[Rfam]
Nucleotides: 091
Base pairs, nucleotide, nucleotide: 012037013036017032018031019030020029021028022027040085041084042083043082045081046080047079048076049075050074055070056069057068058067059066060065
Number, partner (000 for none) and nucleotide at each position: 001000a002000a003000a004000g005000g006000u007000g008000a009000u010000g011000g012037g013036c014000a015000a016000a017032c018031u019030u020029g021028c022027u023000g024000a025000a026000a027022a028021g029020c030019a031018a032017g033000g034000a035000c036013g037012c038000a039000a040085a041084g042083g043082c044000a045081u046080g047079g048076g049075u050074c051000g052000u053000c054000g055070a056069c057068u058067u059066c060065u061000a062000c063000a064000a065060a066059g067058a068057a069056g070055u071000a072000c073000c074050g075049a076048u077000c078000g079047c080046c081045a082043g083042c084041c085040u086000g087000c088000g089000a090000a091000g